[Rfam]
Shown here is a 345-nucleotide RNA from Candidatus Avelusimicrobium gallicola, a member of the family "Bacterial RNase P class A". Gene Ontology terms of the family: dimeric ribonuclease P complex, tRNA processing and ribonuclease P activity. The organism belongs to Candidatus Avelusimicrobium, within Bacteria. Rfam classes the family as a ribozyme.
RNA sequence: AAAAGCAGCCCAGAUAACCGCUCCCGGCCAAUUCCGGCUUGGGGGAGGAACUUCCGGACUCCACAGGGCAGUGCGCCGUUCGAAAGGACGGGACGGCGGGGCCAGAUUACCCCGCUGGACGGAAAGUGCAACAGAAAAAAUACCGCCCGCAAGGGUAAGGGUGAAAGGGUGCGGCAAGAGCGCACCGCGCGUUUAGCAAUAAACGCGGCAAGGCAAACCCCGCACGGAGCAAGGCCAAACCGGUUCACACGCGGCCCGCGUUUGCAACCAAGUAGGCCGCUUAGAGUAAUGGUUAUCCCGGCCCGCAAGGGCCGACAGAAUCCGGGGUAUCGGCUGCUUCUUUUU
Numbered sequence: 001a002a003a004a005g006c007a008g009c010c011c012a013g014a015u016a017a018c019c020g021c022u023c024c025c026g027g028c029c030a031a032u033u034c035c036g037g038c039u040u041g042g043g044g045g046a047g048g049a050a051c052u053u054c055c056g057g058a059c060u061c062c063a064c065a066g067g068g069c070a071g072u073g074c075g076c077c078g079u080u081c082g083a084a085a086g087g088a089c090g091g092g093a094c095g096g097c098g099g100g101g102c103c104a105g106a107u108u109a110c111c112c113c114g115c116u117g118g119a120c121g122g123a124a125a126g127u128g129c130a131a132c133a134g135a136a137a138a139a140a141u142a143c144c145g146c147c148c149g150c151a152a153g154g155g156u157a158a159g160g161g162u163g164a165a166a167g168g169g170u171g172c173g174g175c176a177a178g179a180g181c182g183c184a185c186c187g188c189g190c191g192u193u194u195a196g197c198a199a200u201a202a203a204c205g206c207g208g209c210a211a212g213g214c215a216a217a218c219c220c221c222g223c224a225c226g227g228a229g230c231a232a233g234g235c236c237a238a239a240c241c242g243g244u245u246c247a248c249a250c251g252c253g254g255c256c257c258g259c260g261u262u263u264g265c266a267a268c269c270a271a272g273u274a275g276g277c278c279g280c281u282u283a284g285a286g287u288a289a290u291g292g293u294u295a296u297c298c299c300g301g302c303c304c305g306c307a308a309g310g311g312c313c314g315a316c317a318g319a320a321u322c323c324g325g326g327g328u329a330u331c332g333g334c335u336g337c338u339u340c341u342u343u344u345u
Stems, first nucleotide, its partner, number of pairs: 001341001003339008012330001013297007021045006027038003050328003054325005059229004066257004071225005076091005092120001094117008121220002126218002128214002143160002145156004168186006187209001188207008233278004242269004249261004